Shown here is a 79-nucleotide RNA sequence from Niallia nealsonii, a member of the family "ZMP/ZTP riboswitch aptamer (pfl RNA motif)". Its family is annotated with one-carbon metabolic process and regulation of purine nucleotide biosynthetic process in the Gene Ontology. It scores 59 bits against the family's covariance model. The source organism's lineage runs through Bacteria, Bacilli, Caryophanales, Bacillaceae and Niallia.
RNA sequence: AAGGCUGUAUGUAACUGGCGAAGCACGGAGAACCGUGAGGGAGCAUACAGCGUCGUAGCCGUUCGCCUGGGCAGAGGUA
Numbered sequence: 001a002a003g004g005c006u007g008u009a010u011g012u013a014a015c016u017g018g019c020g021a022a023g024c025a026c027g028g029a030g031a032a033c034c035g036u037g038a039g040g041g042a043g044c045a046u047a048c049a050g051c052g053u054c055g056u057a058g059c060c061g062u063u064c065g066c067c068u069g070g071g072c073a074g075a076g077g078u079a
Stems, first nucleotide, its partner, number of pairs: 004051009015040002017067005025036004056074001058072003